[Rfam]
RNA sequence: GUCGGACAUGCGCCGGAGCAAUCCGUGGUCGUCCUGGUGACGGCAGGCUGGGAACAGCUGGGAUCCUCGGACCGGGGGUCCGACCUGCA
Number, nucleotide and partner (000 for none) at each position: 001g084002u083003c082004g081005g080006a079007c078008a000009u000010g000011c076012g000013c075014c074015g073016g072017a000018g000019c000020a000021a000022u071023c070024c069025g068026u000027g066028g044029u043030c042031g041032u040033c039034c000035u000036g000037g000038u000039g033040a032041c031042g030043g029044c028045a000046g000047g058048c057049u056050g055051g000052g000053a000054a000055c050056a049057g048058c047059u000060g000061g000062g000063a000064u000065c000066c027067u000068c025069g024070g023071a022072c016073c015074g014075g013076g011077g000078g007079u006080c005081c004082g003083a002084c001085c000086u000087g000088c000089a000
This 89-nucleotide sequence belongs to the Rfam family "DUF3800-VII RNA". The base pairs follow the family's consensus structure, which is taken from published work. Rfam's curators put it in the seed alignment. It is annotated as a small RNA.